Rfam assigns this 48-nucleotide RNA sequence from Gynochthodes officinalis to the family "Plastid-rpl16 group II-D1 intron". The family's consensus secondary structure was predicted with LocARNA. For this family Rfam cites "Retrograde signaling in plants: A critical review focusing on the GUN pathway and beyond" (Richter et al., Plant Commun, 2023). From the family's description: Plastid-rpl16 is a non-coding RNA (ncRNA) recognised in plastids. It was recognised in and intronic region of a ribosome rpl16 gene.
RNA sequence: AAGAGCUUGGGGCCAAUAAAGACUGAGAAAGUUGACUCGAGAACAAAU
Numbered sequence: 001a002a003g004a005g006c007u008u009g010g011g012g013c014c015a016a017u018a019a020a021g022a023c024u025g026a027g028a029a030a031g032u033u034g035a036c037u038c039g040a041g042a043a044c045a046a047a048u
Stems, first nucleotide, its partner, number of pairs: 007041002010038003014034004